Shown here is a 148-nucleotide sequence from Gelria sp. Kuro-4, a member of the family "FMN riboswitch aptamer (RFN element)". Taxonomically the source falls in Gelria (Bacteria, Bacillati, Clostridia, Thermoanaerobacterales).
RNA sequence: GAGGUCCUUCAGGGGCUGGUGAGAGGAGAUAUUAUCCUCAAUUCCGCACCGGCGGUGAUGGCCGUUCUCGGCCUAAGCCCGCGAGCCGCAAGGCAGAUCCGGGGAAGAUCCGGAGCCGACAGUAAAGUCUGGAUGGAAGAAGGGUGCA
Numbered sequence: 001g002a003g004g005u006c007c008u009u010c011a012g013g014g015g016c017u018g019g020u021g022a023g024a025g026g027a028g029a030u031a032u033u034a035u036c037c038u039c040a041a042u043u044c045c046g047c048a049c050c051g052g053c054g055g056u057g058a059u060g061g062c063c064g065u066u067c068u069c070g071g072c073c074u075a076a077g078c079c080c081g082c083g084a085g086c087c088g089c090a091a092g093g094c095a096g097a098u099c100c101g102g103g104g105a106a107g108a109u110c111c112g113g114a115g116c117c118g119a120c121a122g123u124a125a126a127g128u129c130u131g132g133a134u135g136g137a138a139g140a141a142g143g144g145u146g147c148a
Stems, first nucleotide, its partner, number of pairs: 004145007017046003048128002050118002052082004077116002085094003098114005120131003